The family of this 94-nucleotide RNA sequence from Basilea psittacipulmonis is "Glycine riboswitch aptamer". About the family: This family represents the bacterial glycine riboswitch.

RNA sequence: GAUGGCAGGUCAAGAGAAUGUUUAUCUCACUUAGAUAAGCUACCGAAGGCGCAAAUACCCAUAAUCGCUCAGGUUCUAGUAUUGUCCUGUCAGA
Numbered sequence: 001g002a003u004g005g006c007a008g009g010u011c012a013a014g015a016g017a018a019u020g021u022u023u024a025u026c027u028c029a030c031u032u033a034g035a036u037a038a039g040c041u042a043c044c045g046a047a048g049g050c051g052c053a054a055a056u057a058c059c060c061a062u063a064a065u066c067g068c069u070c071a072g073g074u075u076c077u078a079g080u081a082u083u084g085u086c087c088u089g090u091c092a093g094a
Base pairs, nucleotide, nucleotide: 006089007088008087009086011084012083013082020040021039022038023037024036025035026034042074043073044072045070046069049068050067051066055062056061
Taxonomically the source falls in Basilea psittacipulmonis (Bacteria, Pseudomonadati, Betaproteobacteria, Basilea).